Rfam assigns this 78-nucleotide RNA from Zingiber officinale to the family "Small nucleolar RNA R160".
NCBI's taxonomy places the organism under Eukaryota, Streptophytina, Embryophyta, Zingiberaceae, Zingiber.
It scores 73 bits against the family's covariance model.
Rfam describes the family as follows. snoR160 is a C/D box small nucleolar RNA, which acts as a methylation guide for 25S ribosomal RNA in plants. snoR160 has been alternatively named snoZ270 in rice.

RNA sequence: AGCAAAAUGAUGAGAUUGUUUAAUCUGAAGUUGAUGUGGAUAGCAUUUUACCAUGGUCUUCAAAGUUCUCUGAUUUCU
Numbered sequence: 001a002g003c004a005a006a007a008u009g010a011u012g013a014g015a016u017u018g019u020u021u022a023a024u025c026u027g028a029a030g031u032u033g034a035u036g037u038g039g040a041u042a043g044c045a046u047u048u049u050a051c052c053a054u055g056g057u058c059u060u061c062a063a064a065g066u067u068c069u070c071u072g073a074u075u076u077c078u
Base pairs, nucleotide, nucleotide: 001078002077004075005074
Annotation:
Pairs were carried over by alignment from the consensus structure.